mir-631 microRNA precursor family: a 72-nucleotide RNA sequence from Nannospalax galili. For this family Rfam cites "Genome-wide comparative analysis of microRNAs in three non-human primates" (Brameier, BMC Res Notes, 2010). The match comes from Rfam's covariance-model search (75 bits). The family's consensus secondary structure was predicted with RNAalifold.
RNA sequence: AGGGAGCCUGGUUCAACCUGGCUCAGACCUCAGCUAAAGAAGCUGAUAACUGAGUCAGGGGCCAUACUCCCU
Number, nucleotide and partner (000 for none) at each position: 001a072002g071003g070004g069005a068006g067007c000008c000009u064010g063011g062012u061013u060014c000015a000016a000017c059018c058019u057020g056021g055022c054023u000024c052025a051026g050027a000028c000029c000030u046031c045032a044033g043034c042035u041036a000037a000038a000039g000040a000041a035042g034043c033044u032045g031046a030047u000048a000049a000050c026051u025052g024053a000054g022055u021056c020057a019058g018059g017060g013061g012062c011063c010064a009065u000066a000067c006068u005069c004070c003071c002072u001